A member of the RNA family "Bacterial small signal recognition particle RNA" from Glycomyces terrestris, 94 nucleotides long. Gene Ontology terms of the family: SRP-dependent cotranslational protein targeting to membrane, signal sequence recognition and signal recognition particle, plasma membrane targeting. The signal recognition particle (SRP) is a universally conserved ribonucleoprotein involved in the co-translational targeting of proteins to membranes. The family is grouped with related families in Rfam's "SRP clan". By type it is a non-coding RNA gene. The source organism's lineage runs through Bacteria, Bacillati, Actinomycetota, Actinomycetes and Glycomyces.
RNA sequence: CCCGUCUCCCAUGCGGCGUCAUCGCGUGAACCUCCCCAGGGCCGGAAGGCAGCAAGGAUAAGCGGGCUCUGUCGGGUGCGUGGGAGACCCAGCC
Numbered sequence: 001c002c003c004g005u006c007u008c009c010c011a012u013g014c015g016g017c018g019u020c021a022u023c024g025c026g027u028g029a030a031c032c033u034c035c036c037c038a039g040g041g042c043c044g045g046a047a048g049g050c051a052g053c054a055a056g057g058a059u060a061a062g063c064g065g066g067c068u069c070u071g072u073c074g075g076g077u078g079c080g081u082g083g084g085a086g087a088c089c090c091a092g093c094c
Stems, first nucleotide, its partner, number of pairs: 004088010014076001017074002020071002023066001025064003033058003041050003